[Rfam]
RNA sequence: CAAAUGGCCCUUUUCAGGGCCACCGAAUUCUUCAUAGAGAGUUUUA
Numbered sequence: 001c002a003a004a005u006g007g008c009c010c011u012u013u014u015c016a017g018g019g020c021c022a023c024c025g026a027a028u029u030c031u032u033c034a035u036a037g038a039g040a041g042u043u044u045u046a
Stems, first nucleotide, its partner, number of pairs: 006021006
Dot-bracket structure: .....((((((....)))))).........................
RNA: Histone 3' UTR stem-loop
Organism: Aedes aegypti